[Rfam]
RNA sequence: UUGCCCAUCGGGGCCUCGGAUACCUGCUUUAUUAUU
Dot-bracket structure: ..((((....))))..(((....)))..........
Numbered sequence: 001u002u003g004c005c006c007a008u009c010g011g012g013g014c015c016u017c018g019g020a021u022a023c024c025u026g027c028u029u030u031a032u033u034a035u036u
Stems, first nucleotide, its partner, number of pairs: 003014004017026003